[Rfam]
RNA: mir-1 microRNA precursor family
RNA sequence: AUCGGAACUCCAUACUUCUUUACAUUCCAUACCGCUUUCAAGGACACAUAUGGGAAGUAAGGAAGCACGGUGUUCCAAU
Dot-bracket structure: ......((.((.(.(((((((((.(.(((((.................))))).).))))))))).).)).))......